[Rfam]
RNA: ZMP/ZTP riboswitch aptamer (pfl RNA motif)
Nucleotides: 076
Base pairs, nucleotide, nucleotide: 003049005047010044011043012042015039016038017064018063019062020061024035025034026033027032053071054070055069056068057067
Number, partner (000 for none) and nucleotide at each position: 001000u002000g003049c004000g005047c006000a007000g008000c009000a010044c011043a012042c013000g014000a015039c016038u017064g018063g019062c020061g021000c022000a023000g024035g025034u026033g027032g028000g029000g030000g031000a032027c033026c034025a035024c036000c037000g038016g039015g040000g041000a042012g043011u044010g045000a046000a047005g048000a049003g050000c051000c052000g053071g054070c055069a056068u057067c058000g059000a060000c061020c062019g063018c064017c065000u066000g067057g068056g069055u070054g071053c072000c073000u074000c075000u076000c